Background
Small nucleolar RNA SNORA5: a 135-nucleotide RNA sequence from Nothoprocta ornata. By type it is an H/ACA-box small nucleolar RNA. The family is grouped with related families in Rfam's "SNORA5 clan".

[Rfam]
RNA sequence: AGCAGCCCCGUCAAAUUCGGUGCCAUCCUCUGUGGUUGGUACUGGCCCAGUUGGCUGCCACAUUAAUCUCUGUAGCUCCGGAGCCCCAGCUCUCCCUCACCGAGUGCUGGGGACGAGAACACCCUGCAGACACUU
Dot-bracket structure: .((((............((((((((.((.....)).))))))))..........)))).............((((.(......(((.((.................)).)))........)..))))........